[Rfam]
RNA: Nuclear RNase P
Organism: Pneumocystis wakefieldiae
RNA sequence: GCACUCUUUAACGCUGCACUUCUUCGUGAACAUACGAUGUUUUAAAAAAACAUAAAAACGAAGGGUUAAGGUCGGAGAAUCAUCCUCAAUUAUUGCUCGUGAUGAGCUUAGCGCUAGUAUGUGCUUGCAACUGCAUUAGAAAGAUACGGCUUAAGUUUUAUAUAGCCUUGAGAGGUCAGUUGUGAGGAUUAGACGUGUUAAUGUCUUUAAGUGCAAUGUGCAGCACCCCUAUAUUGGAGAUAACUCAAUUCCGACUAGUCUUUAGAGUGC
Number, nucleotide and partner (000 for none) at each position: 001g270002c269003a268004c267005u000006c000007u000008u000009u000010a262011a261012c000013g000014c000015u223016g000017c000018a000019c000020u218021u000022c063023u062024u061025c060026g059027u000028g000029a000030a000031c000032a000033u000034a000035c000036g000037a053038u052039g051040u050041u049042u048043u000044a000045a000046a000047a000048a042049a041050a040051c039052a038053u037054a000055a000056a000057a000058a000059c026060g025061a024062a023063g022064g000065g000066u000067u000068a000069a000070g000071g000072u000073c253074g252075g251076a250077g249078a000079a000080u000081c000082a000083u000084c187085c186086u185087c184088a000089a000090u000091u000092a000093u000094u000095g107096c106097u105098c104099g000100u000101g000102a000103u000104g098105a097106g096107c095108u000109u000110a125111g124112c123113g122114c121115u000116a000117g000118u000119a000120u000121g114122u113123g112124c111125u110126u000127g183128c182129a181130a180131c179132u178133g177134c000135a000136u000137u000138a000139g000140a000141a000142a000143g000144a000145u000146a000147c000148g167149g166150c165151u000152u000153a000154a000155g000156u000157u000158u000159u000160a000161u000162a000163u000164a000165g150166c149167c148168u000169u000170g000171a000172g000173a000174g000175g000176u000177c133178a132179g131180u130181u129182g128183u127184g087185a086186g085187g084188a000189u000190u000191a000192g000193a000194c000195g000196u000197g000198u000199u000200a000201a000202u000203g000204u000205c000206u000207u000208u000209a000210a000211g000212u000213g000214c000215a000216a000217u000218g020219u000220g000221c000222a000223g015224c000225a241226c000227c239228c000229c237230u236231a235232u000233a000234u000235u231236g230237g229238a000239g227240a000241u225242a000243a000244c000245u000246c000247a000248a000249u077250u076251c075252c074253g073254a000255c000256u000257a000258g000259u000260c000261u011262u010263u000264a000265g000266a000267g004268u003269g002270c001